[Rfam]
RNA: pan motif
Organism: Paenibacillus lutrae
RNA sequence: AAGGCGGUAUCUUAUAGAACUGCACUUGCGUUGGUUAACCCGUCACAUAAUUGCAUAAAGUACGUUUGUGUUUUCUGAUUCUGCUCUGAGCCUGAAGGACCGAGACAGAAGG
Numbered sequence: 001a002a003g004g005c006g007g008u009a010u011c012u013u014a015u016a017g018a019a020c021u022g023c024a025c026u027u028g029c030g031u032u033g034g035u036u037a038a039c040c041c042g043u044c045a046c047a048u049a050a051u052u053g054c055a056u057a058a059a060g061u062a063c064g065u066u067u068g069u070g071u072u073u074u075c076u077g078a079u080u081c082u083g084c085u086c087u088g089a090g091c092c093u094g095a096a097g098g099a100c101c102g103a104g105a106c107a108g109a110a111g112g
Stems, first nucleotide, its partner, number of pairs: 001027003004023005010018002081108003084104003088100001091098002